[Rfam]
RNA sequence: CGAGUUGGCCAGACAAUCGCGCAAUUUAGGUUUCAGCCUAGAUUGGGAGGAAAGUCCGGGCUCCAUAGGGUAGGACGCCAGAUAACUUCUGGGCAGCGUGAGCUGACGGCAAGUGCAGCAGAGAGAAGACCGCCACGUAAGUGGUAAGGGUGAAAGGGUGCGGUAAGAGCGCACCGCACAGCUGGCAACAGUUUGUGGCAAGGUAAACCCCGUCCGGAGCAAGACCAAAUAGGGGUACUAUGGCGCGACCCGCGUUGUACCCGGGUAGGUUGCUUGAAGUAUGCGGCGACGUAUACUCAGAUGAAUGAUUGUCCAAGACAGAACCCGGCUUAUCGGCUAACUCGACUU
Number, nucleotide and partner (000 for none) at each position: 001c344002g343003a342004g341005u340006u339007g338008g337009c336010c335011a333012g313013a312014c311015a310016a309017u308018c307019g000020c047021g000022c045023a044024a043025u042026u041027u040028a039029g038030g037031u000032u000033u000034c000035a000036g000037c030038c029039u028040a027041g026042a025043u024044u023045g022046g000047g020048a000049g000050g000051a000052a331053a330054g329055u000056c328057c327058g326059g325060g324061c219062u218063c217064c216065a000066u000067a000068g251069g250070g249071u248072a000073g215074g214075a213076c212077g211078c092079c091080a090081g089082a088083u000084a000085a000086c000087u000088u082089c081090u080091g079092g078093g107094c105095a104096g103097c102098g000099u000100g000101a000102g097103c096104u095105g094106a000107c093108g210109g209110c000111a000112a000113g208114u207115g204116c203117a000118g000119c000120a000121g000122a000123g000124a000125g000126a000127a000128g000129a000130c149131c148132g145133c144134c143135a142136c141137g000138u000139a000140a000141g136142u135143g134144g133145u132146a000147a000148g131149g130150g000151u000152g000153a000154a000155a000156g000157g175158g174159u173160g172161c171162g170163g000164u000165a000166a000167g000168a000169g000170c162171g161172c160173a159174c158175c157176g199177c197178a196179c195180a194181g193182c191183u190184g189185g000186c000187a000188a000189c184190a183191g182192u000193u181194u180195g179196u178197g177198g000199c176200a000201a000202g000203g116204u115205a000206a000207a114208c113209c109210c108211c077212g076213u075214c074215c073216g064217g063218a062219g061220c000221a000222a000223g271224a270225c269226c268227a000228a000229a000230u000231a000232g000233g262234g261235g260236u259237a258238c257239u000240a000241u000242g256243g255244c254245g253246c252247g000248a071249c070250c069251c068252g246253c245254g244255u243256u242257g238258u237259a236260c235261c234262c233263g000264g000265g000266u000267a000268g226269g225270u224271u223272g000273c000274u000275u000276g000277a000278a297279g296280u295281a294282u293283g292284c291285g290286g000287c000288g000289a000290c285291g284292u283293a282294u281295a280296c279297u278298c000299a000300g000301a000302u000303g000304a000305a000306u000307g018308a017309u016310u015311g014312u013313c012314c000315a000316a000317g000318a000319c000320a000321g000322a000323a000324c060325c059326c058327g057328g056329c054330u053331u052332a000333u011334c000335g010336g009337c008338u007339a006340a005341c004342u003343c002344g001345a000346c000347u000348u000

Bacterial RNase P class A: a 348-nucleotide RNA sequence from Leucothrix arctica. Its Rfam clan is "RNaseP clan". Lineage of the source: Bacteria > Gammaproteobacteria > Thiotrichales > Thiotrichaceae > Leucothrix.